Overview:
Shown here is a 271-nucleotide sequence from Nannospalax galili, a member of the family "Mason-Pfizer monkey virus packaging signal". It is annotated as a cis-regulatory element. For this family Rfam cites "Mutational analysis of the predicted secondary RNA structure of the Mason-Pfizer monkey virus packaging signal" (Mustafa et al., Virus Res, 2004). Taxonomically the source falls in Nannospalax (Eukaryota, Opisthokonta, Craniata, Gnathostomata). Rfam 15.1 lists 2,921 matches to the family in 53 species. Rfam describes the family as follows. This family represents a group of sequences that are related to the Mason-Pfizer monkey virus (MPMV) packaging signal. The packaging signal is located in the 5' UTR and is required for specific RNA encapsidation.
Nucleotides: 271
Base pairs, nucleotide, nucleotide: 006031007030008029012026013025014024036051037050038049081126082125084122085121095111096110099107132148133147136145137144138143155198156197158194159193206246207245208244209243210242211241215233216232217231218230219229256271258269259268261266
Number, partner (000 for none) and nucleotide at each position: 001000c002000g003000g004000c005000g006031c007030c008029c009000a010000a011000c012026g013025u014024g015000g016000g017000a018000c019000c020000u021000g022000g023000a024014u025013a026012c027000u028000g029008g030007g031006g032000a033000c034000a035000a036051c037050a038049u039000g040000a041000g042000g043000g044000a045000c046000a047000c048000g049038a050037u051036g052000g053000a054000g055000g056000a057000a058000a059000a060000a061000g062000g063000g064000g065000u066000g067000c068000a069000c070000a071000c072000c073000c074000a075000u076000u077000u078000a079000a080000a081126u082125a083000a084122u085121u086000c087000a088000g089000a090000g091000a092000c093000a094000u095111c096110g097000c098000a099107g100000g101000a102000g103000c104000c105000u106000g107099c108000c109000a110096c111095g112000g113000c114000c115000g116000a117000g118000c119000c120000a121085a122084a123000g124000g125082u126081a127000a128000g129000c130000u131000g132148g133147u134000u135000g136145u137144c138143a139000a140000u141000c142000a143138u144137g145136g146000g147133g148132c149000a150000a151000g152000a153000a154000u155198u156197a157000a158194g159193u160000c161000a162000g163000c164000a165000u166000c167000a168000g169000a170000u171000g172000u173000a174000u175000g176000u177000g178000g179000u180000a181000u182000a183000g184000u185000u186000a187000a188000g189000a190000g191000a192000a193159g194158c195000u196000c197156u198155a199000c200000a201000g202000g203000c204000a205000a206246g207245a208244g209243g210242a211241g212000u213000a214000a215233a216232g217231g218230u219229u220000a221000a222000a223000a224000c225000u226000g227000a228000g229219g230218a231217u232216u233215u234000a235000u236000u237000u238000c239000a240000u241211u242210u243209c244208u245207u246206u247000g248000a249000u250000u251000u252000u253000g254000u255000a256271a257000a258269g259268g260000a261266c262000a263000u264000u265000u266261g267000a268259c269258c270000a271256u